Rfam assigns this 365-nucleotide sequence from Streptococcus varani to the family "Bacterial RNase P class B". On this family, see Frank and Pace, Annu Rev Biochem 1998: "Ribonuclease P: unity and diversity in a tRNA processing ribozyme". Ribonuclease P (RNase P) is a ubiquitous endoribonuclease, found in archaea, bacteria and eukarya as well as chloroplasts and mitochondria. Its best characterised activity is the generation of mature 5'-ends of tRNAs by cleaving the 5'-leader elements of precursor-tRNAs. NCBI's taxonomy places the organism under Bacteria, Bacillota, Bacilli, Lactobacillales, Streptococcus.
RNA sequence: AUUUUUGGAUAAUCGCGUGGUGAUUUGUCACCAUGAGGAAAGUCCAUGCUAGCACCGGCUGUGAUGCUGGUAGUGUUUGUGCUAGGCGAAUGCAUAAGCCUAGGGACAUAGAAAUAUGUUACGGCGAGUGAACUGGCUAAGUCUUCGGAUAGGUCACAAUAGCUCUGAAAGUGCCACAGUGACGGAGUUCUCAUGGAAACGUGAGAAGUGGAACGCGGUAAACCCCUCAAGCUAGCAACCCAAAUUUCGGUCGGGGCAUGGGAAAGCUGGAAACGAACGGUCUUUCCUGACUGCAAAGCAGUAGACAGAUGAUUAUCGAAGGUGGUAGUACCUAGUACCACCGGAACAAAACAUGGCUUAUAGAA
Numbered sequence: 001a002u003u004u005u006u007g008g009a010u011a012a013u014c015g016c017g018u019g020g021u022g023a024u025u026u027g028u029c030a031c032c033a034u035g036a037g038g039a040a041a042g043u044c045c046a047u048g049c050u051a052g053c054a055c056c057g058g059c060u061g062u063g064a065u066g067c068u069g070g071u072a073g074u075g076u077u078u079g080u081g082c083u084a085g086g087c088g089a090a091u092g093c094a095u096a097a098g099c100c101u102a103g104g105g106a107c108a109u110a111g112a113a114a115u116a117u118g119u120u121a122c123g124g125c126g127a128g129u130g131a132a133c134u135g136g137c138u139a140a141g142u143c144u145u146c147g148g149a150u151a152g153g154u155c156a157c158a159a160u161a162g163c164u165c166u167g168a169a170a171g172u173g174c175c176a177c178a179g180u181g182a183c184g185g186a187g188u189u190c191u192c193a194u195g196g197a198a199a200c201g202u203g204a205g206a207a208g209u210g211g212a213a214c215g216c217g218g219u220a221a222a223c224c225c226c227u228c229a230a231g232c233u234a235g236c237a238a239c240c241c242a243a244a245u246u247u248c249g250g251u252c253g254g255g256g257c258a259u260g261g262g263a264a265a266g267c268u269g270g271a272a273a274c275g276a277a278c279g280g281u282c283u284u285u286c287c288u289g290a291c292u293g294c295a296a297a298g299c300a301g302u303a304g305a306c307a308g309a310u311g312a313u314u315a316u317c318g319a320a321g322g323u324g325g326u327a328g329u330a331c332c333u334a335g336u337a338c339c340a341c342c343g344g345a346a347c348a349a350a351a352c353a354u355g356g357c358u359u360a361u362a363g364a365a
Stems, first nucleotide, its partner, number of pairs: 004365003007361001008317007016035006040359003044356005049235005054071006077230003081226001082103006104122001105120006123225002126165004134156004141150003171223002173219003188207008239255003259289007290302005321342007